[Rfam]
RNA sequence: CAUAACAAUAUUCCUUUAUUUCGUAUAAUCACGAGAAUACGGCUCGUGAGUCUCUACAGGCUACCGUAAAUAGCUUGACUACGAAAAAUUGACUGCUCAAG
Numbered sequence: 001c002a003u004a005a006c007a008a009u010a011u012u013c014c015u016u017u018a019u020u021u022c023g024u025a026u027a028a029u030c031a032c033g034a035g036a037a038u039a040c041g042g043c044u045c046g047u048g049a050g051u052c053u054c055u056a057c058a059g060g061c062u063a064c065c066g067u068a069a070a071u072a073g074c075u076u077g078a079c080u081a082c083g084a085a086a087a088a089u090u091g092a093c094u095g096c097u098c099a100a101g
Base pairs, nucleotide, nucleotide: 019086020085021084022083023082024081025080029049030048031047032046033045034044035043057077058076059075060074061073062072063071
This 101-nucleotide sequence from Alteribacillus iranensis belongs to the Rfam family "Purine riboswitch aptamer". Riboswitches are metabolite binding domains within certain messenger RNAs that serve as precision sensors for their corresponding targets. Lineage of the source: Bacteria > Bacillati > Bacillota > Caryophanales > Alteribacillus.